[Rfam]
RNA sequence: UCCUGACUGUCGCAUGACGCGGCAGACACUAGCCGAGACAGGAGAAAGACAUG
Number, nucleotide and partner (000 for none) at each position: 001u000002c042003c041004u040005g039006a000007c025008u024009g023010u022011c021012g000013c000014a000015u000016g000017a000018c000019g000020c000021g011022g010023c009024a008025g007026a000027c000028a000029c000030u000031a000032g000033c000034c000035g000036a000037g000038a000039c005040a004041g003042g002043a000044g000045a000046a000047a000048g000049a000050c000051a000052u000053g000
RNA: Mu-gpT-DE RNA